[Rfam]
RNA sequence: GACUUGGUCUCACGUGCAAGCUUAAGCCGCUAGGUGUAGGCGCAGCGAAAGCGAGUCUGAAUAGGGCGACGAGUACGUGGGAUCAGACCCGAAACCCGGUGAUCUAGGCAUGACCAGGCUGAAGAUAGGGUAACACCUAUUGGAGGGCCGAACCCACACCUGUUGAAAAAGGUCGGGAUGAGUUGUGCCUAGGGGUGAAAGGCCAAUCAAACCGGGAGAUAGCUGGUU
Numbered sequence: 001g002a003c004u005u006g007g008u009c010u011c012a013c014g015u016g017c018a019a020g021c022u023u024a025a026g027c028c029g030c031u032a033g034g035u036g037u038a039g040g041c042g043c044a045g046c047g048a049a050a051g052c053g054a055g056u057c058u059g060a061a062u063a064g065g066g067c068g069a070c071g072a073g074u075a076c077g078u079g080g081g082a083u084c085a086g087a088c089c090c091g092a093a094a095c096c097c098g099g100u101g102a103u104c105u106a107g108g109c110a111u112g113a114c115c116a117g118g119c120u121g122a123a124g125a126u127a128g129g130g131u132a133a134c135a136c137c138u139a140u141u142g143g144a145g146g147g148c149c150g151a152a153c154c155c156a157c158a159c160c161u162g163u164u165g166a167a168a169a170a171g172g173u174c175g176g177g178a179u180g181a182g183u184u185g186u187g188c189c190u191a192g193g194g195g196u197g198a199a200a201g202g203c204c205a206a207u208c209a210a211a212c213c214g215g216g217a218g219a220u221a222g223c224u225g226g227u228u
Base pairs, nucleotide, nucleotide: 005085006084007083008082009081010080011079012078013077014076015075016074017073020041021040022039023038026035027034028033045052046051055067056066057065058064088226089225091223095216096215097214098213099212100211104192105191106190107189108188109187110186111185112184113183114182115180117149118148119147120146124141125140126139127138128137129136153177154176155175158173159172160171161170194204195203196202
The record is a 228-nucleotide part of an RNA from Rhodovulum sp. 12E13, which matches "Bacterial large subunit ribosomal RNA" in Rfam. NCBI's taxonomy places the organism under Bacteria, Pseudomonadota, Alphaproteobacteria, Paracoccaceae, Rhodovulum. The family's consensus secondary structure is taken from published work.